The record is a 180-nucleotide RNA sequence from Acinetobacter pittii, which matches "Acinetobacter sRNA 28" in Rfam.
Nucleotides: 180
Base pairs, nucleotide, nucleotide: 003136006133007132009130012129013128014127015126016027017026018025028089029088030087031084032083033082034081035080036079038077039076040075041074042073054060091123092122093121094120095119096118097117098116099115100114138159139158140157141156142155143154144153145152146151167175168174
Number, partner (000 for none) and nucleotide at each position: 001000a002000g003136a004000u005000u006133u007132u008000c009130a010000a011000c012129g013128g014127c015126a016027c017026u018025u019000u020000u021000a022000a023000a024000u025018a026017a027016g028089g029088a030087g031084g032083a033082c034081a035080u036079c037000a038077u039076g040075c041074c042073a043000u044000u045000a046000g047000u048000a049000c050000a051000a052000g053000g054060u055000a056000a057000a058000a059000c060054a061000g062000a063000u064000u065000a066000a067000a068000u069000u070000a071000u072000u073042u074041g075040g076039c077038a078000c079036g080035a081034u082033g083032u084031c085000a086000g087030c088029u089028c090000a091123c092122g093121g094120a095119c096118a097117a098116g099115u100114g101000u102000a103000c104000a105000a106000a107000u108000u109000c110000a111000c112000a113000c114100c115099a116098c117097u118096u119095g120094u121093c122092c123091g124000a125000a126015u127014g128013c129012u130009u131000a132007a133006a134000u135000u136003u137000a138159g139158a140157a141156c142155c143154u144153a145152g146151c147000a148000u149000u150000c151146g152145c153144u154143a155142g156141g157140u158139u159138u160000u161000u162000u163000u164000a165000u166000g167175c168174c169000u170000g171000c172000u173000c174168g175167g176000a177000c178000a179000a180000a

Notes
Rfam classes the family as a small RNA. A reference for the family is Sharma et al. (2014), "Identification of novel regulatory small RNAs in Acinetobacter baumannii", PLoS One. Lineage of the source: Bacteria > Pseudomonadota > Moraxellales > Moraxellaceae > Acinetobacter pittii.